[Rfam]
RNA: Phenylalanine leader peptide
RNA sequence: GAAACAACUUAACGUUCACUUUUUUACUUUCUUUUUUAUUCCCCCCAUACAGGGAGGCGGAAUUUCGGUGUAAAAACGAAAGUGAAAAUUCCAAAGCCUCCCACUAGGGGGGCUUUUUUGUG
Dot-bracket structure: ....................(((((((((((.((.((((...(((......))).((.(...).))...)))).)).)))))))))))....((((((((((....))))))))))......